About this RNA
Rfam assigns this 152-nucleotide sequence from Callithrix jacchus to the family "Small nucleolar RNA SNORA12". Lineage of the source: Eukaryota > Chordata > Teleostomi > Euteleostomi > Callithrix. The match comes from Rfam's covariance-model search (123 bits). Pairs were carried over by alignment from the consensus structure, which was predicted with RNAalifold.
RNA sequence: UCUUGUGGUAGUUUUCUUUUUGGAACAUGUGUUAAGUUUUCAAAUGGGCCGACCACUGCCACAUGUAUUAUAUUGGAGCUGGCAAAGGCCUGUGACAGAUCUCUCUCAAGUUUUUCAUGCCUUUCCUGCCUCAGAGAAUGGCUCCCACAUGU
Numbered sequence: 001u002c003u004u005g006u007g008g009u010a011g012u013u014u015u016c017u018u019u020u021u022g023g024a025a026c027a028u029g030u031g032u033u034a035a036g037u038u039u040u041c042a043a044a045u046g047g048g049c050c051g052a053c054c055a056c057u058g059c060c061a062c063a064u065g066u067a068u069u070a071u072a073u074u075g076g077a078g079c080u081g082g083c084a085a086a087g088g089c090c091u092g093u094g095a096c097a098g099a100u101c102u103c104u105c106u107c108a109a110g111u112u113u114u115u116c117a118u119g120c121c122u123u124u125c126c127u128g129c130c131u132c133a134g135a136g137a138a139u140g141g142c143u144c145c146c147a148c149a150u151g152u
Stems, first nucleotide, its partner, number of pairs: 005062007022050002026046003030042002075145006081090003102137005
Rfam's curators write: U108 belongs to the H/ACA family of snoRNAs.